[Rfam]
RNA sequence: CUGCAUUCUUAAACCCUCUUGGUAGCUUCCCCGAAAAUGCUUCCAAGAUAUGAGUGAAUGCUACAGAAAUCGCAGGGGAGUCCAAAAGGCUGCGCCUCUCCUGUGCCUCGGUCUUAUUUCAUACCUGCGACAUCU
Numbered sequence: 001c002u003g004c005a006u007u008c009u010u011a012a013a014c015c016c017u018c019u020u021g022g023u024a025g026c027u028u029c030c031c032c033g034a035a036a037a038u039g040c041u042u043c044c045a046a047g048a049u050a051u052g053a054g055u056g057a058a059u060g061c062u063a064c065a066g067a068a069a070u071c072g073c074a075g076g077g078g079a080g081u082c083c084a085a086a087a088g089g090c091u092g093c094g095c096c097u098c099u100c101c102u103g104u105g106c107c108u109c110g111g112u113c114u115u116a117u118u119u120c121a122u123a124c125c126u127g128c129g130a131c132a133u134c135u
Base pairs, nucleotide, nucleotide: 003061004060005059006058008054009053010052011051017048018047019046020045021044022043024041025040026039065135066134067133070130071129072128073127074126075125076124086115087114088113089112090111091110092109094107098103

The record is a 135-nucleotide sequence from Crocuta crocuta, which matches "Small nucleolar RNA SNORA14" in Rfam. A search with the family's covariance model found it, with a score of 150 bits. Its family is annotated with RNA processing and nucleolus in the Gene Ontology. Rfam 15.1 lists 848 matches to the family in 633 species. From the family's description: ACA14 is a member of the H/ACA class of snoRNA that guide the sites of modification of uridines to pseudouridines. The base pairs follow the family's consensus structure, which was predicted with RNAfold.